This 128-nucleotide sequence from Mesocricetus auratus belongs to the Rfam family "Small nucleolar RNA SNORA27". About the family: ACA27 is a member of the H/ACA class of snoRNA that guide the sites of modification of uridines to pseudouridines. Lineage of the source: Eukaryota > Opisthokonta > Mammalia > Theria > Mesocricetus. The family's RNA type in Rfam is H/ACA-box small nucleolar RNA.
RNA sequence: GCACUGUCUUUCAUGCUGCUAAGUGAACUUAAUGUUUUCAUUGGGCAUUCGGAUGGGCAAAGGAAAUUACCAUUUCUAACUCAGGAGAACUUAAGUGUUUGUGUUGUAUCCUGUCAGGGGACACAUUC
Dot-bracket structure: ................................(((((...((((....))))..)))))..........((.((.......((.(.((((......)))).).).).........)).))........